[Rfam]
RNA sequence: GAAAGCAGAGGACGGAACGGGCAGCCGUCACCCUAGUUGGAGAUGUGGGAAUGUCACCCCACCUAUUUC
Numbered sequence: 001g002a003a004a005g006c007a008g009a010g011g012a013c014g015g016a017a018c019g020g021g022c023a024g025c026c027g028u029c030a031c032c033c034u035a036g037u038u039g040g041a042g043a044u045g046u047g048g049g050a051a052u053g054u055c056a057c058c059c060c061a062c063c064u065a066u067u068u069c
Base pairs, nucleotide, nucleotide: 001069002068003067004066007064008063011029012028013027014026015025020055021054022053023052031040045062046061047060048059049058
Dot-bracket structure: ((((..((..(((((....[[[[.))))).(........)....(((((..]]]]..))))))).))))
Overview: Rfam assigns this 69-nucleotide RNA to the family "skipping-rope RNA". Rfam classes the family as a small RNA.